Rfam assigns this 95-nucleotide RNA from Alloactinosynnema sp. L-07 to the family "Glycine riboswitch aptamer".
It scores 57 bits against the family's covariance model.
Rfam's curators write: This family represents the bacterial glycine riboswitch.
[Rfam]
RNA sequence: CGAGCCGGAACGGGAGAGCCUCCACCGAGUUCGGGUGGGGCACCGAAGGAGCAAACUCCCCGGAAACUCUCAGGUAAACCUACCGUUCCAGGCCA
Numbered sequence: 001c002g003a004g005c006c007g008g009a010a011c012g013g014g015a016g017a018g019c020c021u022c023c024a025c026c027g028a029g030u031u032c033g034g035g036u037g038g039g040g041c042a043c044c045g046a047a048g049g050a051g052c053a054a055a056c057u058c059c060c061c062g063g064a065a066a067c068u069c070u071c072a073g074g075u076a077a078a079c080c081u082a083c084c085g086u087u088c089c090a091g092g093c094c095a
Base pairs, nucleotide, nucleotide: 007089008088009087010086011085012084013083020040021039022038023037024036025035026034042075043074044073045071046070049069050068051067056062